[Rfam]
RNA sequence: UGGAAGUGCCUUUCUGGCCGGAUGUGAUUGUUGCGUCGAGAACACCAAUCAUUACAGCUCAGAGGGCACUUUCCUCAUAUCAACACCCUGCGCACCACGCAGUUCAUCGGUGGAUCGAG
Numbered sequence: 001u002g003g004a005a006g007u008g009c010c011u012u013u014c015u016g017g018c019c020g021g022a023u024g025u026g027a028u029u030g031u032u033g034c035g036u037c038g039a040g041a042a043c044a045c046c047a048a049u050c051a052u053u054a055c056a057g058c059u060c061a062g063a064g065g066g067c068a069c070u071u072u073c074c075u076c077a078u079a080u081c082a083a084c085a086c087c088c089u090g091c092g093c094a095c096c097a098c099g100c101a102g103u104u105c106a107u108c109g110g111u112g113g114a115u116c117g118a119g
Stems, first nucleotide, its partner, number of pairs: 002073012015061003019057001021055001025051004030046001032044002100117001102115005

A member of the RNA family "Actinobacteria sRNA Ms_IGR-7" from Mycolicibacterium sarraceniae, 119 nucleotides long. The family has 14 seed sequences and 463 matches in Rfam 15.1. It is annotated as a small RNA. The match comes from Rfam's covariance-model search (99 bits).